The family of this 254-nucleotide sequence from Chloropicon primus is "ACEA small nucleolar RNA U3".
Gene Ontology terms of the family: RNA processing and nucleolus.
The family has 28 seed sequences and 2,156 matches in Rfam 15.1.
NCBI's taxonomy places the organism under Eukaryota, Chlorophyta, Chloropicales, Chloropicaceae, Chloropicon.
The family's consensus secondary structure is taken from published work.
From the family's description: Small nucleolar RNAs (snoRNAs) are involved in the processing and modification of rRNA in the nucleolus. There are two main classes of snoRNAs: the box C/D class, and the box H/ACA class. U3 snoRNA is a member of the box C/D class.
The match comes from Rfam's covariance-model search (55 bits).
On this family, see Zwieb, Nucleic Acids Res 1997: "The uRNA database".
Rfam classes the family as a C/D-box small nucleolar RNA.
RNA sequence: ACGACUAUACUCGAACAGGAUUUGUUCUAUAGUUGUUUCCCCUAUUCUGUAUUCUCUAGAAUAGACAAAUUUUCUCAAGCCGGAGGAUGAACCCAAACACCCUCGCAUGAGCUGAAGUCCCUCGCGGCCUCCUCACAAGAGCAGCCAGCGCUAAAUGCAAGGCCUUCUCCGGGAUCUCUCCUGCGGGAACGGAGACCUCGUCUCCCGCCCUCGCGGACCUGGAAGGGGUUGUGAGAGGUGUCGUCAGACGGCUC
Numbered sequence: 001a002c003g004a005c006u007a008u009a010c011u012c013g014a015a016c017a018g019g020a021u022u023u024g025u026u027c028u029a030u031a032g033u034u035g036u037u038u039c040c041c042c043u044a045u046u047c048u049g050u051a052u053u054c055u056c057u058a059g060a061a062u063a064g065a066c067a068a069a070u071u072u073u074c075u076c077a078a079g080c081c082g083g084a085g086g087a088u089g090a091a092c093c094c095a096a097a098c099a100c101c102c103u104c105g106c107a108u109g110a111g112c113u114g115a116a117g118u119c120c121c122u123c124g125c126g127g128c129c130u131c132c133u134c135a136c137a138a139g140a141g142c143a144g145c146c147a148g149c150g151c152u153a154a155a156u157g158c159a160a161g162g163c164c165u166u167c168u169c170c171g172g173g174a175u176c177u178c179u180c181c182u183g184c185g186g187g188a189a190c191g192g193a194g195a196c197c198u199c200g201u202c203u204c205c206c207g208c209c210c211u212c213g214c215g216g217a218c219c220u221g222g223a224a225g226g227g228g229u230u231g232u233g234a235g236a237g238g239u240g241u242c243g244u245c246a247g248a249c250g251g252c253u254c
Stems, first nucleotide, its partner, number of pairs: 003040001006035001009033003017028004046067001048065001050063005078253005097241005102235006112161002163225001165223002168221001